Plastid-ndhJ 3UTR RNA: a 57-nucleotide RNA from Malus micromalus.
[Rfam]
RNA sequence: UUAUGAACUAUGUACCGCGCCCAUCACUUAGAUGGGCUAUAGAAAGUAACAUAGGAG
Numbered sequence: 001u002u003a004u005g006a007a008c009u010a011u012g013u014a015c016c017g018c019g020c021c022c023a024u025c026a027c028u029u030a031g032a033u034g035g036g037c038u039a040u041a042g043a044a045a046g047u048a049a050c051a052u053a054g055g056a057g
Stems, first nucleotide, its partner, number of pairs: 019037002022034004